[Rfam]
RNA: tRNA
Organism: Mesorhabditis belari
RNA sequence: UCCCGGAUAGCUCAGUGGUUAGAGCAUUUGCCUGGAAAGUAAAAAGGUCGAGGGUUCAAUCUCCUAUCCGGAAA
Numbered sequence: 001u002c003c004c005g006g007a008u009a010g011c012u013c014a015g016u017g018g019u020u021a022g023a024g025c026a027u028u029u030g031c032c033u034g035g036a037a038a039g040u041a042a043a044a045a046g047g048u049c050g051a052g053g054g055u056u057c058a059a060u061c062u063c064c065u066a067u068c069c070g071g072a073a074a
Stems, first nucleotide, its partner, number of pairs: 001073001003071005010025004027043005051065004